A member of the RNA family "Yersinia sRNA 224" from Sodalis ligni, 106 nucleotides long. The match comes from Rfam's covariance-model search (71 bits). It is annotated as a small RNA. On this family, see Righetti et al., Proc Natl Acad Sci U S A 2016: "Temperature-responsive in vitro RNA structurome of Yersinia pseudotuberculosis". The base pairs follow the family's consensus structure.
[Rfam]
RNA sequence: GAGUUUGUUGACAAAGUGUUCUGCCGGGACAGGCCGCCGGAUCGUAAACACGCCGUAAAUACCCCCCUGUGGGCUCGAUCCGCGCCAUCCCUGGCGCGGACGGUUU
Dot-bracket structure: ............(((.((.(((...)))..((.......(...(((...((...))...)))..)........))....((((((((....)))))))).)).)))